[Rfam]
The record is a 227-nucleotide RNA from Miscanthus lutarioriparius, which matches "MIR6217 microRNA precursor family" in Rfam. A search with the family's covariance model found it, with a score of 140 bits. The source organism's lineage runs through Eukaryota, Streptophyta, Poaceae, Andropogonodae and Miscanthus.
RNA sequence: UGGCCAUACAAUAACUUAUUCUGUGGCCACUUUGAGUUACGAUAGUUACUAUGCUAAUUUACGAGACUAGAGCAACUCCUUAAUAAGUGAUUUACUAUAAUAUUAUGGUAAAUAUCACCGUAAGUUGUAGUAACACGAGUAUCGUAAAUGUAUAUUCAUGUUAUCGUAAAUUGGUACAAAUAUUAUCGUAAAUAAAGGUAACUAUAAAAUAAAUUAUUCUAUGGCCU
Numbered sequence: 001u002g003g004c005c006a007u008a009c010a011a012u013a014a015c016u017u018a019u020u021c022u023g024u025g026g027c028c029a030c031u032u033u034g035a036g037u038u039a040c041g042a043u044a045g046u047u048a049c050u051a052u053g054c055u056a057a058u059u060u061a062c063g064a065g066a067c068u069a070g071a072g073c074a075a076c077u078c079c080u081u082a083a084u085a086a087g088u089g090a091u092u093u094a095c096u097a098u099a100a101u102a103u104u105a106u107g108g109u110a111a112a113u114a115u116c117a118c119c120g121u122a123a124g125u126u127g128u129a130g131u132a133a134c135a136c137g138a139g140u141a142u143c144g145u146a147a148a149u150g151u152a153u154a155u156u157c158a159u160g161u162u163a164u165c166g167u168a169a170a171u172u173g174g175u176a177c178a179a180a181u182a183u184u185a186u187c188g189u190a191a192a193u194a195a196a197g198g199u200a201a202c203u204a205u206a207a208a209a210u211a212a213a214u215u216a217u218u219c220u221a222u223g224g225c226c227u
Stems, first nucleotide, its partner, number of pairs: 002226007010218005016212005022206005029199005037191010050178001052176011065165002069161001071159001072157001074155001080147003087142003091138002093132009103122001108116001